[Rfam]
RNA sequence: UAACUGAGUAUAAGCGGUUAGUGUGUAUUACACAUGGGACAUUGCUCUACAG
Numbered sequence: 001u002a003a004c005u006g007a008g009u010a011u012a013a014g015c016g017g018u019u020a021g022u023g024u025g026u027a028u029u030a031c032a033c034a035u036g037g038g039a040c041a042u043u044g045c046u047c048u049a050c051a052g
Stems, first nucleotide, its partner, number of pairs: 006047005015037001018039002021035006

Rfam assigns this 52-nucleotide RNA sequence from Acinetobacter haemolyticus to the family "Xanthine riboswitch aptamer (NMT1 RNA)". The literature on the family includes a 2021 paper in Nucleic Acids Res by Xu et al., "Insights into xanthine riboswitch structure and metal ion-mediated ligand recognition". The source organism's lineage runs through Bacteria, Gammaproteobacteria, Moraxellales, Moraxellaceae and Acinetobacter haemolyticus. The family's consensus secondary structure is taken from published work.